[Rfam]
RNA: Purine riboswitch aptamer
RNA sequence: AAAAAAGAAUAUUAUAGUAUUCGUAUAUGCUUGAAAAUAUGGUUCAAGUGUUUCUACUAGGAAACCGUAAAUAUCCUAACUACGAAAAGAAAUGAUAAUUGG
Numbered sequence: 001a002a003a004a005a006a007g008a009a010u011a012u013u014a015u016a017g018u019a020u021u022c023g024u025a026u027a028u029g030c031u032u033g034a035a036a037a038u039a040u041g042g043u044u045c046a047a048g049u050g051u052u053u054c055u056a057c058u059a060g061g062a063a064a065c066c067g068u069a070a071a072u073a074u075c076c077u078a079a080c081u082a083c084g085a086a087a088a089g090a091a092a093u094g095a096u097a098a099u100u101g102g
Base pairs, nucleotide, nucleotide: 018088020086021085022084023083024082025081029049030048031047032046033045034044035043058078059077060076061075062074064072